Overview: The family of this 204-nucleotide RNA sequence from Ceyx cyanopectus is "Small nucleolar RNA SNORA74". NCBI's taxonomy places the organism under Eukaryota, Metazoa, Eumetazoa, Euteleostomi, Ceyx. From the family's description: U19 belongs to the H/ACA class of snoRNAs. snoRNAs bind a number of proteins (including dyskerin, Gar1p and Nop10p in the case of the H/ACA class) to form snoRNP complexes. This class are thought to guide the sites of modification of uridines to pseudouridines by forming direct base pairing interactions with substrate RNAs. Targets may include ribosomal and spliceosomal RNAs but the exact functions of many snoRNAs, including U19, are not confirmed. Co-precipitation of U19 snoRNA with RNase MRP RNA suggests that U19 may be involved in pre-rRNA processing. On this family, see Ganot et al., Genes Dev 1997: "The family of box ACA small nucleolar RNAs is defined by an evolutionarily conserved secondary structure and ubiquitous sequence elements essential for RNA accumulation". It is annotated as an H/ACA-box small nucleolar RNA.
RNA sequence: CCCAGCAGUAGUCAGCUACUCAUUGCUGCUCAGUGCCUGUGAUAGUGUUAUGCUGCUGGGAGAGAGACAUGCUGCCAAGCCCCUCCUGGCACCACCAGUUCUGUUCUGGUGCUGUGUGGUGCCAGGUUUUGGCAGCACCCUGCAUGCCUGAGAGUGGAGUAACUCCUGCUCCGUGGAGUUAAUCCUAGAUUGGAUGCAGACAAU
Numbered sequence: 001c002c003c004a005g006c007a008g009u010a011g012u013c014a015g016c017u018a019c020u021c022a023u024u025g026c027u028g029c030u031c032a033g034u035g036c037c038u039g040u041g042a043u044a045g046u047g048u049u050a051u052g053c054u055g056c057u058g059g060g061a062g063a064g065a066g067a068c069a070u071g072c073u074g075c076c077a078a079g080c081c082c083c084u085c086c087u088g089g090c091a092c093c094a095c096c097a098g099u100u101c102u103g104u105u106c107u108g109g110u111g112c113u114g115u116g117u118g119g120u121g122c123c124a125g126g127u128u129u130u131g132g133c134a135g136c137a138c139c140c141u142g143c144a145u146g147c148c149u150g151a152g153a154g155u156g157g158a159g160u161a162a163c164u165c166c167u168g169c170u171c172c173g174u175g176g177a178g179u180u181a182a183u184c185c186u187a188g189a190u191u192g193g194a195u196g197c198a199g200a201c202a203a204u
Stems, first nucleotide, its partner, number of pairs: 001060009011051002015046004020041001021039002025036002070137008085126003090121006096114004101109002140199006147192001156185003160181007